[Rfam]
RNA: Small nucleolar RNA R38
RNA sequence: AUUUGUGAAUGAUGAGAAAUUAAUAUUAUCACAAUUAUCCCUGUCAGAUUGCUGAUGCUGAUAAUUUUUUUCUCUGACACAACA
Numbered sequence: 001a002u003u004u005g006u007g008a009a010u011g012a013u014g015a016g017a018a019a020u021u022a023a024u025a026u027u028a029u030c031a032c033a034a035u036u037a038u039c040c041c042u043g044u045c046a047g048a049u050u051g052c053u054g055a056u057g058c059u060g061a062u063a064a065u066u067u068u069u070u071u072c073u074c075u076g077a078c079a080c081a082a083c084a
Stems, first nucleotide, its partner, number of pairs: 003082005